[Rfam]
RNA sequence: GUGGCUCAUUCACCCUCUUAUGUCAGCCCCUUCGGGACGCGCUACAUAAACCUUCGAAUGACGCACUUAAAGGUGCCUGCCGUCCACCUGCUGAUAAUUGCGUAGCUUUAUCAGACCUCGGGCGAAACGUCGAGUUAGGCACCGCCUAAUUACAUAACAAAGCCGGGCUUUUGCCCGGCUUUGUUGUU
Numbered sequence: 001g002u003g004g005c006u007c008a009u010u011c012a013c014c015c016u017c018u019u020a021u022g023u024c025a026g027c028c029c030c031u032u033c034g035g036g037a038c039g040c041g042c043u044a045c046a047u048a049a050a051c052c053u054u055c056g057a058a059u060g061a062c063g064c065a066c067u068u069a070a071a072g073g074u075g076c077c078u079g080c081c082g083u084c085c086a087c088c089u090g091c092u093g094a095u096a097a098u099u100g101c102g103u104a105g106c107u108u109u110a111u112c113a114g115a116c117c118u119c120g121g122g123c124g125a126a127a128c129g130u131c132g133a134g135u136u137a138g139g140c141a142c143c144g145c146c147u148a149a150u151u152a153c154a155u156a157a158c159a160a161a162g163c164c165g166g167g168c169u170u171u172u173g174c175c176c177g178g179c180u181u182u183g184u185u186g187u188u
Base pairs, nucleotide, nucleotide: 001066002065004064005063006061007060008059009058016048019044024041072143073142074141075140076139077138078137082123083122084121085120093112094111095110096109158183159182160181161180162179163178164177165176166175167174168173
The record is a 188-nucleotide sequence from Kosakonia cowanii, which matches "GlmZ RNA activator of glmS mRNA" in Rfam.
Rfam's curators write: This RNA was discovered in E. coli during a large scale screen. The sraJ gene was expressed in early logarithmic phase, but its level decreased with cell growth. Specific cleavage products of this RNA were found. Identified in Yersinia pseudotuberculosis as Ysr248/153/sR016.
Its Rfam clan is "Glm clan".
Pairs were carried over by alignment from the consensus structure, which is taken from published work.
The literature on the family includes a 2001 paper in Curr Biol by Argaman et al., "Novel small RNA-encoding genes in the intergenic regions of Escherichia coli".
Lineage of the source: Bacteria > Pseudomonadota > Gammaproteobacteria > Kosakonia > Kosakonia cowanii.